[Rfam]
This 77-nucleotide RNA from Serinus canaria belongs to the Rfam family "Small nucleolar RNA SNORD19".
Rfam links the family to the GO terms RNA processing and nucleolus.
The match comes from Rfam's covariance-model search (42 bits).
Clan: SNORD19 clan.
By type it is a C/D-box small nucleolar RNA.
RNA sequence: GAAAAAUGAUGAUACUGCCUGUAUACUGCCUAGAUUACAGUGAAGACCUCAGAUCCAACUCUGAUUUCACUCUAGCU
Numbered sequence: 001g002a003a004a005a006a007u008g009a010u011g012a013u014a015c016u017g018c019c020u021g022u023a024u025a026c027u028g029c030c031u032a033g034a035u036u037a038c039a040g041u042g043a044a045g046a047c048c049u050c051a052g053a054u055c056c057a058a059c060u061c062u063g064a065u066u067u068c069a070c071u072c073u074a075g076c077u
Stems, first nucleotide, its partner, number of pairs: 001068004